[Rfam]
RNA sequence: UUUUAGGGCUCCUGCCAUGAGUAGUAUACAUAAAGCAGCUUGAUUGCUCUAUGUAGAAUUGACAUCAAGAGAUUUUUGGAAGCAUAAGCUUUUGCUAUCUGGGCAGCUGGUGAUUGUUGGUUUUGGUGCCCAC
Numbered sequence: 001u002u003u004u005a006g007g008g009c010u011c012c013u014g015c016c017a018u019g020a021g022u023a024g025u026a027u028a029c030a031u032a033a034a035g036c037a038g039c040u041u042g043a044u045u046g047c048u049c050u051a052u053g054u055a056g057a058a059u060u061g062a063c064a065u066c067a068a069g070a071g072a073u074u075u076u077u078g079g080a081a082g083c084a085u086a087a088g089c090u091u092u093u094g095c096u097a098u099c100u101g102g103g104c105a106g107c108u109g110g111u112g113a114u115u116g117u118u119g120g121u122u123u124u125g126g127u128g129c130c131c132a133c
Stems, first nucleotide, its partner, number of pairs: 008083003011079002013026003017022001027055006034048005056075005101131004106127005112122004